[Rfam]
RNA sequence: GAACUGCCACCGCUCACGCGGUGGCGGACCGGGGACCCAUCGUUCCCCUGGGGUGAAUCUCGCCUGGCCAGUGUGCCGCCGCGAGUAGGGCUGUCUCCGGCCCGAACCCGUCAGCUAACUCGGUAGACGGCGAGGGAGAAUGGAGUU
Numbered sequence: 001g002a003a004c005u006g007c008c009a010c011c012g013c014u015c016a017c018g019c020g021g022u023g024g025c026g027g028a029c030c031g032g033g034g035a036c037c038c039a040u041c042g043u044u045c046c047c048c049u050g051g052g053g054u055g056a057a058u059c060u061c062g063c064c065u066g067g068c069c070a071g072u073g074u075g076c077c078g079c080c081g082c083g084a085g086u087a088g089g090g091c092u093g094u095c096u097c098c099g100g101c102c103c104g105a106a107c108c109c110g111u112c113a114g115c116u117a118a119c120u121c122g123g124u125a126g127a128c129g130g131c132g133a134g135g136g137a138g139a140a141u142g143g144a145g146u147u
Stems, first nucleotide, its partner, number of pairs: 005132004010027005028124006038050002051109003059085004088103004